[Rfam]
RNA sequence: UUGACGGUGAACUCCCAGUAGUCCUGCGACUCGAGGAUCGCCUCGUAGCUGUAGUGAUCGCCAUCGGCGAGCACCUCGAGCACCGUCGGCUCGCCGUACUUCCCGGCGCCGAUCUUGUUCACCUUGCCGUGGGCGAUCAGGUAGAUCGCGUCGGCUUCCUUGCCGGCCUCGCUGAUGAUCUCGCCGGCCUUGUACUCCUUCUGCUCGAAGCGGCCUGCCAGCGCAGUCAGGACAUCGUUGUCCUCGAAACCGCGCAGGAUCGGCAGCUCGCACAGCUCCUGCGGGAUCACCUGCACCUUCGACCCGGUGCUGGUGAACGUCACCCGGCCGUCACCGACCGCAUAGCUCAGGCGGCGGUUGACGCGGUACGUACCGGCGGAGACCUGGAUCCACGGCAGCAGCUUCAGCAGCCACCGGGACGAGAUCCCCUGCAUCUGGGGGAGCGACUUCGUGGUCGUCGCGAGCUGCCGUGCGGCUGCCGUCGCGAGGCUCUGCUGCUGCUUCUCAA
Numbered sequence: 001u002u003g004a005c006g007g008u009g010a011a012c013u014c015c016c017a018g019u020a021g022u023c024c025u026g027c028g029a030c031u032c033g034a035g036g037a038u039c040g041c042c043u044c045g046u047a048g049c050u051g052u053a054g055u056g057a058u059c060g061c062c063a064u065c066g067g068c069g070a071g072c073a074c075c076u077c078g079a080g081c082a083c084c085g086u087c088g089g090c091u092c093g094c095c096g097u098a099c100u101u102c103c104c105g106g107c108g109c110c111g112a113u114c115u116u117g118u119u120c121a122c123c124u125u126g127c128c129g130u131g132g133g134c135g136a137u138c139a140g141g142u143a144g145a146u147c148g149c150g151u152c153g154g155c156u157u158c159c160u161u162g163c164c165g166g167c168c169u170c171g172c173u174g175a176u177g178a179u180c181u182c183g184c185c186g187g188c189c190u191u192g193u194a195c196u197c198c199u200u201c202u203g204c205u206c207g208a209a210g211c212g213g214c215c216u217g218c219c220a221g222c223g224c225a226g227u228c229a230g231g232a233c234a235u236c237g238u239u240g241u242c243c244u245c246g247a248a249a250c251c252g253c254g255c256a257g258g259a260u261c262g263g264c265a266g267c268u269c270g271c272a273c274a275g276c277u278c279c280u281g282c283g284g285g286a287u288c289a290c291c292u293g294c295a296c297c298u299u300c301g302a303c304c305c306g307g308u309g310c311u312g313g314u315g316a317a318c319g320u321c322a323c324c325c326g327g328c329c330g331u332c333a334c335c336g337a338c339c340g341c342a343u344a345g346c347u348c349a350g351g352c353g354g355c356g357g358u359u360g361a362c363g364c365g366g367u368a369c370g371u372a373c374c375g376g377c378g379g380a381g382a383c384c385u386g387g388a389u390c391c392a393c394g395g396c397a398g399c400a401g402c403u404u405c406a407g408c409a410g411c412c413a414c415c416g417g418g419a420c421g422a423g424a425u426c427c428c429c430u431g432c433a434u435c436u437g438g439g440g441g442a443g444c445g446a447c448u449u450c451g452u453g454g455u456c457g458u459c460g461c462g463a464g465c466u467g468c469c470g471u472g473c474g475g476c477u478g479c480c481g482u483c484g485c486g487a488g489g490c491u492c493u494g495c496u497g498c499u500g501c502u503u504c505u506c507a508a
Stems, first nucleotide, its partner, number of pairs: 006390003011385001015381001018328002021325001025322001026320003032313001034311002037308003043302003047298002051233002055229004060224002065111004078101003082097002085094002117222003122217001127212001130209001131206005139199003143196002149192002153189004159183001160178002164174003235293001240290002244286002251281002254278001256277002261270002330341002352378002355375003361371003391431002394428002397425001399423001403418003407415001437476001440473001443471003447467001448464005477507002481501002484498002487496002
A member of the RNA family "Saccharopolyspora sRNA 350" from Chondromyces crocatus, 508 nucleotides long. Gene Ontology term of the family: regulation of secondary metabolite biosynthetic process. A search with the family's covariance model found it, with a score of 130 bits. Pairs were carried over by alignment from the consensus structure, which was predicted with RNAfold. The source organism's lineage runs through Bacteria, Pseudomonadati, Myxococcota, Polyangia and Chondromyces.